Shown here is a 113-nucleotide sequence from Glaciihabitans tibetensis, a member of the family "ALIL pseudoknot".
The match comes from Rfam's covariance-model search (75 bits).
Gene Ontology term of the family: positive regulation of translational frameshifting.
Pairs were carried over by alignment from the consensus structure, which is taken from published work.
It is annotated as a cis-regulatory element.
[Rfam]
RNA sequence: GGCUUUCUUCGCGGCGGAGCUCGCCCCCCCUCGAUCAGAUAGUCGACUUCAUCGACACCAACAAGCACGAAUUCGGGGUCGAGCCGAUCUGCAGGGAACUGCAGGUCGCCCCG
Numbered sequence: 001g002g003c004u005u006u007c008u009u010c011g012c013g014g015c016g017g018a019g020c021u022c023g024c025c026c027c028c029c030c031u032c033g034a035u036c037a038g039a040u041a042g043u044c045g046a047c048u049u050c051a052u053c054g055a056c057a058c059c060a061a062c063a064a065g066c067a068c069g070a071a072u073u074c075g076g077g078g079u080c081g082a083g084c085c086g087a088u089c090u091g092c093a094g095g096g097a098a099c100u101g102c103a104g105g106u107c108g109c110c111c112c113g
Base pairs, nucleotide, nucleotide: 013028014027016025017024074113075112076111077110078109085108086107088105089104090103091102092101093100094099